[Rfam]
Rfam assigns this 61-nucleotide RNA to the family "DUF2815 RNA". The base pairs follow the family's consensus structure, which is taken from published work.
RNA sequence: CGGGUAGACGAUACGGCCCCGACUGAAGUCCGUAUCACAACGUCAAAAAGGUAGUCUUAUG
Numbered sequence: 001c002g003g004g005u006a007g008a009c010g011a012u013a014c015g016g017c018c019c020c021g022a023c024u025g026a027a028g029u030c031c032g033u034a035u036c037a038c039a040a041c042g043u044c045a046a047a048a049a050g051g052u053a054g055u056c057u058u059a060u061g
Stems, first nucleotide, its partner, number of pairs: 001021004010036007